Background:
A member of the RNA family "Small nucleolar RNA snoR53Y" from Cajanus cajan, 85 nucleotides long. The base pairs follow the family's consensus structure, which was predicted with WAR. By type it is a C/D-box small nucleolar RNA. Rfam 15.1 lists 513 matches to the family in 230 species. Clan: snoR53 clan. On this family, see Brown et al., RNA 2001: "Multiple snoRNA gene clusters from Arabidopsis". Rfam links the family to the GO terms RNA processing and nucleolus. The match comes from Rfam's covariance-model search (59 bits).

[Rfam]
RNA sequence: GUUCCUGAUGAUGUUUUGUCUCUUUUACCAUGCUAAUUCUGAUUGCUUGUGAUUAAUACUUUUAGUUUACUAUACUGAGGGAACG
Numbered sequence: 001g002u003u004c005c006u007g008a009u010g011a012u013g014u015u016u017u018g019u020c021u022c023u024u025u026u027a028c029c030a031u032g033c034u035a036a037u038u039c040u041g042a043u044u045g046c047u048u049g050u051g052a053u054u055a056a057u058a059c060u061u062u063u064a065g066u067u068u069a070c071u072a073u074a075c076u077g078a079g080g081g082a083a084c085g
Stems, first nucleotide, its partner, number of pairs: 001084005